[Rfam]
RNA sequence: CUUAUACUCUCGCCAGCGGUCCCUUCAUUGGGACUUCAGCUCCAGUUGUGGCAGGGGGUUCUGGCGAUUAGCUGGUCCUCUGUCUCCCUGGUUUCCAUGGCCGCGGCGGGCCUGUUCUGCCAACGCCAUGAGACCCACCGGCCAGGCUUCCCGCCUGCGCCCGAGGGGUGGACCCCCACCUCGAUCCCGUCCCUCGAGGAACGUCUCGAUGA
Numbered sequence: 001c002u003u004a005u006a007c008u009c010u011c012g013c014c015a016g017c018g019g020u021c022c023c024u025u026c027a028u029u030g031g032g033a034c035u036u037c038a039g040c041u042c043c044a045g046u047u048g049u050g051g052c053a054g055g056g057g058g059u060u061c062u063g064g065c066g067a068u069u070a071g072c073u074g075g076u077c078c079u080c081u082g083u084c085u086c087c088c089u090g091g092u093u094u095c096c097a098u099g100g101c102c103g104c105g106g107c108g109g110g111c112c113u114g115u116u117c118u119g120c121c122a123a124c125g126c127c128a129u130g131a132g133a134c135c136c137a138c139c140g141g142c143c144a145g146g147c148u149u150c151c152c153g154c155c156u157g158c159g160c161c162c163g164a165g166g167g168g169u170g171g172a173c174c175c176c177c178a179c180c181u182c183g184a185u186c187c188c189g190u191c192c193c194u195c196g197a198g199g200a201a202c203g204u205c206u207c208g209a210u211g212a
Stems, first nucleotide, its partner, number of pairs: 018173001020171001021168006030139002032135001035132002039094001042091004050084011096130003100126002105121006140161003143157004179199006
RNA: psaA RNA